[Rfam]
Nucleotides: 161
Stems, first nucleotide, its partner, number of pairs: 009120003014044002017041002021039005046088003050085001052084001054081003058077004091114002093111003097107002136160005143152003
Number, partner (000 for none) and nucleotide at each position: 001000a002000u003000a004000c005000c006000u007000g008000g009120g010119c011118a012000c013000a014044g015043g016000c017041a018040g019000a020000a021039a022038c023037c024036a025035u026000g027000a028000u029000u030000a031000u032000g033000a034000g035025g036024u037023g038022g039021u040018u041017u042000u043015c044014c045000c046088a047087g048086g049000a050085g051000g052084g053000a054081g055080g056079c057000u058077c059076a060075u061074c062000c063000a064000g065000u066000g067000c068000a069000a070000u071000c072000c073000a074061g075060a076059u077058g078000u079056g080055c081054u082000g083000a084052c085050c086048c087047c088046u089000g090000c091114g092113a093111u094110u095109u096000c097107c098106c099000c100000a101000a102000a103000u104000g105000u106098g107097g108000g109095a110094a111093a112000u113092u114091c115000a116000a117000c118011u119010g120009c121000c122000u123000a124000a125000u126000u127000u128000g129000u130000g131000g132000u133000a134000g135000u136160g137159g138158g139157g140156g141000c142000u143152g144151u145150g146000u147000u148000c149000a150145u151144g152143c153000u154000u155000u156140c157139c158138c159137c160136u161000g

Rfam assigns this 161-nucleotide sequence from Crocuta crocuta to the family "U1 spliceosomal RNA". It scores 81 bits against the family's covariance model. The family has 100 seed sequences and 40,184 matches in Rfam 15.1. The family is grouped with related families in Rfam's "U1 clan".